[Rfam]
RNA sequence: AUUGCAGGUUUGAAGCUACAACAAAAAUGCUCAUGGUGUGGCCAUGCCAGAUUCCAAUGAAUCUGUGAAUUCUGCU
Numbered sequence: 001a002u003u004g005c006a007g008g009u010u011u012g013a014a015g016c017u018a019c020a021a022c023a024a025a026a027a028u029g030c031u032c033a034u035g036g037u038g039u040g041g042c043c044a045u046g047c048c049a050g051a052u053u054c055c056a057a058u059g060a061a062u063c064u065g066u067g068a069a070u071u072c073u074g075c076u
Base pairs, nucleotide, nucleotide: 015042016041017040020076022074023073025071026070027039028038029037048065049064050063051062052061053060054059
The record is a 76-nucleotide RNA sequence from Alligator mississippiensis, which matches "Mammalian CPEB3 ribozyme" in Rfam. A search with the family's covariance model found it, with a score of 40 bits. The base pairs follow the family's consensus structure, which is taken from published work. NCBI's taxonomy places the organism under Eukaryota, Metazoa, Deuterostomia, Crocodylia, Alligator.